[Rfam]
RNA sequence: CUACUGUGCCACUUGGUGGAUGGCUCGGCUCGGAAGCCGAAGAAGGACGUGCCAAGCUGCGAUAAGCCUGAGGGAGCCGCACGGAGGCUAAGAACUCAGGAUUUCCUAAUGGGAAUCCCUUCACAAUUGCUUUGCGCAAUGGGGAACGUCGGGAAUUGAAACAUCUUAGUACCGACAGGAAGAGAAACCGAACGGGACGCCGUUAGUAACCGCGAGUGAAAGCGGCACAGUCCAAACCGAAGCCCUCACGGGCAAUGUGGUGUUCGGACUGACUCUCAUCGCCCGAAAGUCUGUCUGAAGUCUCCUGAAACGGAGCGCGAUACAGGGUGACAGCCCCGUAAUACAGUCGAGUACGGCGUGCGUCAGUUCCAGAGUAGCGGGGAUCGGAAAUUCCUCGUGACUAUGGCCGGCAUCGACGGCCAAGACUAAGUACUCUCCGAGACCGAUAGUGAACAAGUAGCGUGAGCGAACGCUGAAAAGCACCCUCAAACGGGGGGUGAAAUAGGGCCUGAAAUCAAGUGGCGAUGGAGC
Numbered sequence: 001c002u003a004c005u006g007u008g009c010c011a012c013u014u015g016g017u018g019g020a021u022g023g024c025u026c027g028g029c030u031c032g033g034a035a036g037c038c039g040a041a042g043a044a045g046g047a048c049g050u051g052c053c054a055a056g057c058u059g060c061g062a063u064a065a066g067c068c069u070g071a072g073g074g075a076g077c078c079g080c081a082c083g084g085a086g087g088c089u090a091a092g093a094a095c096u097c098a099g100g101a102u103u104u105c106c107u108a109a110u111g112g113g114a115a116u117c118c119c120u121u122c123a124c125a126a127u128u129g130c131u132u133u134g135c136g137c138a139a140u141g142g143g144g145a146a147c148g149u150c151g152g153g154a155a156u157u158g159a160a161a162c163a164u165c166u167u168a169g170u171a172c173c174g175a176c177a178g179g180a181a182g183a184g185a186a187a188c189c190g191a192a193c194g195g196g197a198c199g200c201c202g203u204u205a206g207u208a209a210c211c212g213c214g215a216g217u218g219a220a221a222g223c224g225g226c227a228c229a230g231u232c233c234a235a236a237c238c239g240a241a242g243c244c245c246u247c248a249c250g251g252g253c254a255a256u257g258u259g260g261u262g263u264u265c266g267g268a269c270u271g272a273c274u275c276u277c278a279u280c281g282c283c284c285g286a287a288a289g290u291c292u293g294u295c296u297g298a299a300g301u302c303u304c305c306u307g308a309a310a311c312g313g314a315g316c317g318c319g320a321u322a323c324a325g326g327g328u329g330a331c332a333g334c335c336c337c338g339u340a341a342u343a344c345a346g347u348c349g350a351g352u353a354c355g356g357c358g359u360g361c362g363u364c365a366g367u368u369c370c371a372g373a374g375u376a377g378c379g380g381g382g383a384u385c386g387g388a389a390a391u392u393c394c395u396c397g398u399g400a401c402u403a404u405g406g407c408c409g410g411c412a413u414c415g416a417c418g419g420c421c422a423a424g425a426c427u428a429a430g431u432a433c434u435c436u437c438c439g440a441g442a443c444c445g446a447u448a449g450u451g452a453a454c455a456a457g458u459a460g461c462g463u464g465a466g467c468g469a470a471c472g473c474u475g476a477a478a479a480g481c482a483c484c485c486u487c488a489a490a491c492g493g494g495g496g497g498u499g500a501a502a503u504a505g506g507g508c509c510u511g512a513a514a515u516c517a518a519g520u521g522g523c524g525a526u527g528g529a530g531c
Base pairs, nucleotide, nucleotide: 007524008523009522010521011520012519013518014517015516016515022509023473024472027444028443029441030440031439032438033437034436035434036433044107045106046105047104048061049060050059067100068099069098070097071096072095076088077087078086111120112119113118126140127139128138129137130136147178148176149175150174151173152172158165159164188195189194199226200225201224202223203222209217210216229427230426231425232424237260238259239258242253243252244251245250270365271364272363273362280358281357282356283355294343296341300316302315303314304313305312319323325337326336327335377398378397379396380395381394382393383392405421406420407419408418409417460467461466
Annotation
A member of the RNA family "Archaeal large subunit ribosomal RNA" from Salarchaeum sp. JOR-1, 531 nucleotides of a longer RNA. A reference for the family is Yusupov et al. (2001), "Crystal structure of the ribosome at 5.5 A resolution", Science. The family's consensus secondary structure is taken from published work. Taxonomically the source falls in Salarchaeum (Archaea, Methanobacteriati, Halobacteria, Halobacteriaceae).